[Rfam]
RNA sequence: AUGCCUUAUGAUAAAACUACAUUAAUUUCAUUGUAAUUACCAAAAAAUAAUUAAAAAGGAAUUACGAUAUAAU
Numbered sequence: 001a002u003g004c005c006u007u008a009u010g011a012u013a014a015a016a017c018u019a020c021a022u023u024a025a026u027u028u029c030a031u032u033g034u035a036a037u038u039a040c041c042a043a044a045a046a047a048u049a050a051u052u053a054a055a056a057a058g059g060a061a062u063u064a065c066g067a068u069a070u071a072a073u
Stems, first nucleotide, its partner, number of pairs: 030068008
Rfam assigns this 73-nucleotide sequence from Parvimonas sp. oral taxon 110 to the family "dfrA-dnaX RNA". Rfam classes the family as a small RNA. The sequence is in the family's curated seed alignment.